[Rfam]
RNA sequence: CUAGACGGUUCCUGAUUAUUCUGUCUUUAUCUCACUCAUAGAGAACAGA
Numbered sequence: 001c002u003a004g005a006c007g008g009u010u011c012c013u014g015a016u017u018a019u020u021c022u023g024u025c026u027u028u029a030u031c032u033c034a035c036u037c038a039u040a041g042a043g044a045a046c047a048g049a
Base pairs, nucleotide, nucleotide: 006048008046009045010044011043

About this RNA
The record is a 49-nucleotide sequence from Camphora micrantha, which matches "Plastid-rpoB 5UTR RNA" in Rfam. By type it is a cis-regulatory element. Rfam 15.1 lists 102 matches to the family in 69 species. From the family's description: Plastid rpoB is a non-coding RNA (ncRNA) recognised in plastids. It scores 64 bits against the family's covariance model.